[Rfam]
RNA: isrC Hfq binding RNA
RNA sequence: ACAACAUGGCAAAGAAGAAAGGCCAGAAUUUCAGUCCUGAAUUCAGACUGGAAACAGCACAACUGGUUGUUGACCAGGGGUACACGAGUAAAGAAGCUGCUGAAGCGAUGGGAGUUGGUUAUUC
Numbered sequence: 001a002c003a004a005c006a007u008g009g010c011a012a013a014g015a016a017g018a019a020a021g022g023c024c025a026g027a028a029u030u031u032c033a034g035u036c037c038u039g040a041a042u043u044c045a046g047a048c049u050g051g052a053a054a055c056a057g058c059a060c061a062a063c064u065g066g067u068u069g070u071u072g073a074c075c076a077g078g079g080g081u082a083c084a085c086g087a088g089u090a091a092a093g094a095a096g097c098u099g100c101u102g103a104a105g106c107g108a109u110g111g112g113a114g115u116u117g118g119u120u121a122u123u124c
Stems, first nucleotide, its partner, number of pairs: 007121004026055001029053005037046003062101001064099002067095002070092002073089002077085001079083001106117004